RNA sequence: GGAAAGAGAGGGAUUUGAACCCUCGGUACAAAUAAUUUGUACAGCGGAUUAG
Numbered sequence: 001g002g003a004a005a006g007a008g009a010g011g012g013a014u015u016u017g018a019a020c021c022c023u024c025g026g027u028a029c030a031a032a033u034a035a036u037u038u039g040u041a042c043a044g045c046g047g048a049u050u051a052g
Stems, first nucleotide, its partner, number of pairs: 008024005026042006
RNA: Plastid-psbl-rps4 3UTR RNA